[Rfam]
RNA: Small nucleolar RNA SNORD89
RNA sequence: UCUGGGAGAUGAUGUGAACAAAAGGCCGAAUUGUAGCACUGUCGCUGGGCAGUUUGUUCUCAGAGCACGGCGCGAUGACAAAGACCGACCGAAGCGUUCGUCUGAUCCCAGC
Numbered sequence: 001u002c003u004g005g006g007a008g009a010u011g012a013u014g015u016g017a018a019c020a021a022a023a024g025g026c027c028g029a030a031u032u033g034u035a036g037c038a039c040u041g042u043c044g045c046u047g048g049g050c051a052g053u054u055u056g057u058u059c060u061c062a063g064a065g066c067a068c069g070g071c072g073c074g075a076u077g078a079c080a081a082a083g084a085c086c087g088a089c090c091g092a093a094g095c096g097u098u099c100g101u102c103u104g105a106u107c108c109c110a111g112c
Stems, first nucleotide, its partner, number of pairs: 002111006014102001025034002035098003042092002044089001046087002052073002055069003059065001074085001